[Rfam]
RNA sequence: AUGAAUAAUAAGUUAGUUCCGUAGACCGUAGGUGCUGAAAAGCGUAAGAUUAUGUCGCCUACCGAGGAAGACGUAUAUAUAUUGUAUAUAAUAGUCUCUUCGUGUGUUUACGGAGAGACUUUAAUUUUAUAUA
Dot-bracket structure: ...........................(((((((((....))).............))))))...............................((((((((((......))))))))))..............